The record is a 54-nucleotide RNA sequence from Mycobacterium manitobense, which matches "L31-Actinobacteria ribosomal protein leader" in Rfam. NCBI's taxonomy places the organism under Bacteria, Actinomycetota, Actinomycetes, Mycobacteriales, Mycobacterium.
[Rfam]
RNA sequence: UCGGUUCCGGUUCACGCCUGAUCUACCAGGUCAAUGGCAGGCGACCCGGCGGCC
Numbered sequence: 001u002c003g004g005u006u007c008c009g010g011u012u013c014a015c016g017c018c019u020g021a022u023c024u025a026c027c028a029g030g031u032c033a034a035u036g037g038c039a040g041g042c043g044a045c046c047c048g049g050c051g052g053c054c
Stems, first nucleotide, its partner, number of pairs: 003054003007049004015043006023037003